The family of this 202-nucleotide sequence from Setaria italica is "MIR1435 microRNA precursor family".
A search with the family's covariance model found it, with a score of 98 bits.
NCBI's taxonomy places the organism under Eukaryota, Streptophyta, Euphyllophyta, Spermatophyta, Setaria.
Rfam links the family to the GO terms miRNA-mediated post-transcriptional gene silencing and RISC complex.
RNA sequence: UAACUUUUGCCCUAAGUCAAACCUGUCUAACUUUGAUCAAGUUUAUUGAAAGACAUAUUAACAUCUAUAUUAUCAAAUAAAUACACUAGCAAGUUAUAUUUCAUGAUGUAUCUAAUGAAACUAGUUUGAUGAUGUAGAUAUUUGUGCAUUUUUCAACAAACUUGGUCAAAGUUAAAGAAAAUUGACUUAGGACAAAGCUAAG
Numbered sequence: 001u002a003a004c005u006u007u008u009g010c011c012c013u014a015a016g017u018c019a020a021a022c023c024u025g026u027c028u029a030a031c032u033u034u035g036a037u038c039a040a041g042u043u044u045a046u047u048g049a050a051a052g053a054c055a056u057a058u059u060a061a062c063a064u065c066u067a068u069a070u071u072a073u074c075a076a077a078u079a080a081a082u083a084c085a086c087u088a089g090c091a092a093g094u095u096a097u098a099u100u101u102c103a104u105g106a107u108g109u110a111u112c113u114a115a116u117g118a119a120a121c122u123a124g125u126u127u128g129a130u131g132a133u134g135u136a137g138a139u140a141u142u143u144g145u146g147c148a149u150u151u152u153u154c155a156a157c158a159a160a161c162u163u164g165g166u167c168a169a170a171g172u173u174a175a176a177g178a179a180a181a182u183u184g185a186c187u188u189a190g191g192a193c194a195a196a197g198c199u200a201a202g
Stems, first nucleotide, its partner, number of pairs: 005197005011191002015188002020183002024179001026177001032170005046156008056146003060142002063139007073129006